RNA sequence: AAGUAUCGGUGAAGAUGCCGAUUACCCGCAACGGGACGAAAAGACCCCGUGAACCUUUACUACAGCUUCACAUUGCAUUAGGGUAUAAGAUGUGUAGGAUAGGUGGGAGACUAUGAAUGGGCCACGCCAGUGGUUUUGGAGUCGUCCUUGAAAUACCACCCUUCUUAUACUUUGAUGCUAACCCCUGGAAAGAGGGGGACCGUGUGUGGUGGGUAGUUUGACUGGGGUGGUCGCCUCCUAAAGUGUAACGGAGGCUCGCAAAGGUUCCCUCAGCAUGGUUGGUAAUCAUGCGAAGAGCGUAUGAGUAUAAGGGAGCUUGACUGAGAGAGAGACAUCUCGACCAGGUGCGAAAGCAGGCUCAAGUGAUCCGGUGGUUCCGUAUGGAAGGGCCAUCGCUCAAAGGAUAAAAGGUACUCCGGGGAUAACAGGCUGAUCUCCCCCAAGAGCUCACAUCGACGGGGAGGUUUGGCACCUCGAUGUCGGCUCGUCACAUCCUGGGGCUGAAGAAGGUCCCAAGGGUUGGGCUGUUCGCCCAUUAAAGUGGCACGCGAGCUGGGUUCAGAACGUCGCAAGACAGUUCGGUCUCUAUCUGUUGCGGGC
Numbered sequence: 001a002a003g004u005a006u007c008g009g010u011g012a013a014g015a016u017g018c019c020g021a022u023u024a025c026c027c028g029c030a031a032c033g034g035g036a037c038g039a040a041a042a043g044a045c046c047c048c049g050u051g052a053a054c055c056u057u058u059a060c061u062a063c064a065g066c067u068u069c070a071c072a073u074u075g076c077a078u079u080a081g082g083g084u085a086u087a088a089g090a091u092g093u094g095u096a097g098g099a100u101a102g103g104u105g106g107g108a109g110a111c112u113a114u115g116a117a118u119g120g121g122c123c124a125c126g127c128c129a130g131u132g133g134u135u136u137u138g139g140a141g142u143c144g145u146c147c148u149u150g151a152a153a154u155a156c157c158a159c160c161c162u163u164c165u166u167a168u169a170c171u172u173u174g175a176u177g178c179u180a181a182c183c184c185c186u187g188g189a190a191a192g193a194g195g196g197g198g199a200c201c202g203u204g205u206g207u208g209g210u211g212g213g214u215a216g217u218u219u220g221a222c223u224g225g226g227g228u229g230g231u232c233g234c235c236u237c238c239u240a241a242a243g244u245g246u247a248a249c250g251g252a253g254g255c256u257c258g259c260a261a262a263g264g265u266u267c268c269c270u271c272a273g274c275a276u277g278g279u280u281g282g283u284a285a286u287c288a289u290g291c292g293a294a295g296a297g298c299g300u301a302u303g304a305g306u307a308u309a310a311g312g313g314a315g316c317u318u319g320a321c322u323g324a325g326a327g328a329g330a331g332a333c334a335u336c337u338c339g340a341c342c343a344g345g346u347g348c349g350a351a352a353g354c355a356g357g358c359u360c361a362a363g364u365g366a367u368c369c370g371g372u373g374g375u376u377c378c379g380u381a382u383g384g385a386a387g388g389g390c391c392a393u394c395g396c397u398c399a400a401a402g403g404a405u406a407a408a409a410g411g412u413a414c415u416c417c418g419g420g421g422a423u424a425a426c427a428g429g430c431u432g433a434u435c436u437c438c439c440c441c442a443a444g445a446g447c448u449c450a451c452a453u454c455g456a457c458g459g460g461g462a463g464g465u466u467u468g469g470c471a472c473c474u475c476g477a478u479g480u481c482g483g484c485u486c487g488u489c490a491c492a493u494c495c496u497g498g499g500g501c502u503g504a505a506g507a508a509g510g511u512c513c514c515a516a517g518g519g520u521u522g523g524g525c526u527g528u529u530c531g532c533c534c535a536u537u538a539a540a541g542u543g544g545c546a547c548g549c550g551a552g553c554u555g556g557g558u559u560c561a562g563a564a565c566g567u568c569g570c571a572a573g574a575c576a577g578u579u580c581g582g583u584c585u586c587u588a589u590c591u592g593u594u595g596c597g598g599g600c
Stems, first nucleotide, its partner, number of pairs: 005022005025599008034591003038586002046420004051416002053412005059217004066209002069206004075178016092161001102160005109143003119136007182197005220232004233255006256401001258358002264316006270296002273291006297306002321344003327338003346355003369395007377388002429470003433467001434464007444454002481556001482554004486548001487545005494519002497514006521535005562580004566575003
The family of this 600-nucleotide part of an RNA from Lewinella sp. W8 is "Bacterial large subunit ribosomal RNA". The family's consensus secondary structure is taken from published work.